Rfam assigns this 74-nucleotide RNA from Oryzomonas rubra to the family "tRNA". By type it is a transfer RNA. It scores 66 bits against the family's covariance model. Transfer RNA (tRNA) molecules are approximately 80 nucleotides in length. The family's consensus secondary structure is taken from published work. NCBI's taxonomy places the organism under Bacteria, Thermodesulfobacteriota, Desulfuromonadia, Geobacterales, Oryzomonas.
RNA sequence: CGGGAUGUAGCGCAGCCUGGUAGCGCACCUGCUUCGGGAGCAGGGGGCCGCUGGUUCAAAUCCAGUCAUCCCGA
Numbered sequence: 001c002g003g004g005a006u007g008u009a010g011c012g013c014a015g016c017c018u019g020g021u022a023g024c025g026c027a028c029c030u031g032c033u034u035c036g037g038g039a040g041c042a043g044g045g046g047g048c049c050g051c052u053g054g055u056u057c058a059a060a061u062c063c064a065g066u067c068a069u070c071c072c073g074a
Stems, first nucleotide, its partner, number of pairs: 001073007010026004028044005050066005
Dot-bracket structure: (((((((..((((.........)))).(((((.......))))).....(((((.......)))))))))))).